[Rfam]
RNA: U2 spliceosomal RNA
Organism: Rhinopithecus bieti
RNA sequence: AUCACUUCUUGGCCUUUUGGCUAAGAUCAAGUAUAGUAUCUGUAUCAGUUUCAUAUCUGAUAUGUCCUCUAUUCAAGGACAAUAUAUUAAAUGGAUUUUUGGAAAUAGGAGAUGGAAUAGGAGCUUGCUGCAUCCACUCCACACAUUGACCUGGUAUUGCAGUACUUCCAACAACAGUGCACCCAAA
Number, nucleotide and partner (000 for none) at each position: 001a000002u000003c000004a000005c000006u000007u026008c025009u024010u000011g022012g021013c020014c019015u000016u000017u000018u000019g014020g013021c012022u011023a000024a009025g008026a007027u000028c000029a000030a000031g000032u000033a000034u000035a000036g000037u000038a000039u000040c000041u000042g000043u062044a061045u060046c059047a058048g057049u000050u000051u000052c000053a000054u000055a000056u000057c048058u047059g046060a045061u044062a043063u000064g080065u079066c078067c077068u076069c000070u000071a000072u000073u000074c000075a000076a068077g067078g066079a065080c064081a000082a000083u000084a000085u000086a000087u000088u000089a000090a000091a000092u000093g000094g000095a000096u000097u000098u000099u000100u000101g000102g000103a000104a000105a000106u000107a000108g140109g139110a138111g137112a000113u000114g134115g133116a000117a000118u000119a000120g131121g000122a129123g128124c000125u000126u000127g000128c123129u122130g000131c120132a000133u115134c114135c000136a000137c111138u110139c109140c108141a000142c000143a000144c179145a178146u177147u176148g175149a000150c000151c000152u170153g169154g168155u000156a000157u000158u000159g000160c000161a000162g000163u000164a000165c000166u000167u000168c154169c153170a152171a000172c000173a000174a000175c148176a147177g146178u145179g144180c000181a000182c000183c000184c000185a000186a000187a000